RNA sequence: UGGAUGCUUGCAGUUUCACAUGGUGUCUCCUUUCUGUGGUGACAACUGUGCAGAACCAUCCCAGAGUAACACUGAAGCUAUCUGUUCAUCCCUGGAUAGUUAACAGGGUUGGAUCGUUCCACUUCUGACAUAU
Numbered sequence: 001u002g003g004a005u006g007c008u009u010g011c012a013g014u015u016u017c018a019c020a021u022g023g024u025g026u027c028u029c030c031u032u033u034c035u036g037u038g039g040u041g042a043c044a045a046c047u048g049u050g051c052a053g054a055a056c057c058a059u060c061c062c063a064g065a066g067u068a069a070c071a072c073u074g075a076a077g078c079u080a081u082c083u084g085u086u087c088a089u090c091c092c093u094g095g096a097u098a099g100u101u102a103a104c105a106g107g108g109u110u111g112g113a114u115c116g117u118u119c120c121a122c123u124u125c126u127g128a129c130a131u132a133u
Base pairs, nucleotide, nucleotide: 002061003060004059005058006057008055009054022047023046024045026042027041029039030038072127074125075124076123077122091107092106093105094104
RNA: Small Cajal body specific RNA 24